[Rfam]
RNA sequence: GGAGUGGUUUAGGUAGUUUCAUGUUGUUGGGAUCUAUUUUCUACCUCUACAACACGAAUCUGUCUGAAUUGGCCC
Dot-bracket structure: ....((((((((((((.((..((((((.(((.............))).))))))..)).))))))))))))....
Source information:
mir-196 microRNA precursor family: a 75-nucleotide sequence from Hucho hucho. The literature on the family includes a 2003 paper in RNA by Lagos-Quintana et al., "New microRNAs from mouse and human". Taxonomically the source falls in Hucho (Eukaryota, Eumetazoa, Actinopteri, Neopterygii). It scores 57 bits against the family's covariance model.